Notes
Shown here is a 133-nucleotide RNA sequence from Trichococcus palustris, a member of the family "Enterococcus sRNA 68 (Lacto-3 RNA)". Pairs were carried over by alignment from the consensus structure, which is taken from published work.
[Rfam]
Nucleotides: 133
Stems, first nucleotide, its partner, number of pairs: 019060005024039006040051004075111005094106004121133003125130001
Number, partner (000 for none) and nucleotide at each position: 001000u002000g003000c004000g005000a006000u007000g008000a009000g010000g011000c012000g013000a014000c015000g016000a017000g018000c019060a020059a021058u022057c023056a024039g025038a026037u027036g028035a029034g030000u031000u032000u033000a034029c035028u036027c037026a038025u039024u040051c041050c042049g043048c044000u045000u046000u047000g048043g049042c050041g051040g052000c053000u054000g055000g056023u057022g058021a059020u060019u061000g062000c063000g064000a065000a066000u067000c068000u069000u070000a071000a072000c073000g074000g075111g076110a077109c078108a079107u080000g081000c082000g083000u084000g085000c086000u087000u088000u089000g090000c091000a092000c093000a094106c095105c096104a097103c098000a099000g100000g101000a102000u103097g104096u105095g106094g107079a108078u109077g110076u111075u112000u113000g114000a115000u116000a117000a118000c119000a120000a121133c122132u123131g124000c125130u126000g127000u128000g129000a130125a131123c132122a133121g